[Rfam]
RNA: Clostridiales-1 RNA
RNA sequence: UGAUACCAGGGUCAAAAGUUCAUGCGUUUCAUGCUUGCAUGAAAAAGCAUGAAUUUGAGACCCGAACAAACAUGAGAACGAAGCCCGUCAGGGCGGAGUUUGAAUGUUUGUAGGAUUGUGGGAGCACAAAGUGCGGAACAAUCCGUGGUAUCA
Number, nucleotide and partner (000 for none) at each position: 001u153002g152003a151004u150005a149006c148007c147008a000009g000010g062011g061012u060013c059014a000015a000016a056017a055018g054019u053020u052021c051022a050023u049024g048025c047026g000027u045028u044029u042030c041031a040032u039033g038034c000035u000036u000037g000038c033039a032040u031041g030042a029043a000044a028045a027046a000047g025048c024049a023050u022051g021052a020053a019054u018055u017056u016057g000058a000059g013060a012061c011062c010063c000064g000065a000066a111067c110068a109069a108070a107071c106072a105073u104074g000075a000076g101077a100078a099079c098080g000081a000082a000083g094084c093085c092086c091087g000088u000089c000090a000091g086092g085093g084094c083095g000096g000097a000098g079099u078100u077101u076102g000103a000104a073105u072106g071107u070108u069109u068110g067111u066112a000113g144114g143115a142116u141117u140118g139119u138120g000121g000122g000123a000124g134125c133126a132127c131128a000129a000130a000131g127132u126133g125134c124135g000136g000137a000138a119139c118140a117141a116142u115143c114144c113145g000146u000147g007148g006149u005150a004151u003152c002153a001